Rfam assigns this 219-nucleotide RNA sequence from Miscanthus lutarioriparius to the family "MIR6217 microRNA precursor family". It scores 145 bits against the family's covariance model.
[Rfam]
RNA sequence: UGGCUAUAAAAUAACUUAUUCUGUAGUCACUUUGAGUUACGAUAAUUAUUAUGCUAAUCUAUAUGAUUAUAGUAACUCCUUACUAAAUGGUUUCCUGUAAUGUUACGGUAAAUAUCCCCAUGUACAUAAUUAUCGUAAAUACAUAUUCACUUUAUCAUAAAUUAAGUAUAAAAAUUAUCGUAAAUGGAGGUGGCUACAGAAUAACUUAUUCUAUAGCUU
Numbered sequence: 001u002g003g004c005u006a007u008a009a010a011a012u013a014a015c016u017u018a019u020u021c022u023g024u025a026g027u028c029a030c031u032u033u034g035a036g037u038u039a040c041g042a043u044a045a046u047u048a049u050u051a052u053g054c055u056a057a058u059c060u061a062u063a064u065g066a067u068u069a070u071a072g073u074a075a076c077u078c079c080u081u082a083c084u085a086a087a088u089g090g091u092u093u094c095c096u097g098u099a100a101u102g103u104u105a106c107g108g109u110a111a112a113u114a115u116c117c118c119c120a121u122g123u124a125c126a127u128a129a130u131u132a133u134c135g136u137a138a139a140u141a142c143a144u145a146u147u148c149a150c151u152u153u154a155u156c157a158u159a160a161a162u163u164a165a166g167u168a169u170a171a172a173a174a175u176u177a178u179c180g181u182a183a184a185u186g187g188a189g190g191u192g193g194c195u196a197c198a199g200a201a202u203a204a205c206u207u208a209u210u211c212u213a214u215a216g217c218u219u
Stems, first nucleotide, its partner, number of pairs: 002218007010210005016204018037183011050170005055164004060159003065156003069152001072148001074146001080138004087133006101124003107117002
Dot-bracket structure: .(((((((.(((((.((((((((((((((((((...(((((((((((..(((((((((.(((..(((.(..(.(.....((((...((((((........(((...((.......))....)))...)))))).)))).......).)...).)))))).)))).)))))..)))))))))))...)))))))))))))))))).))))).))))))).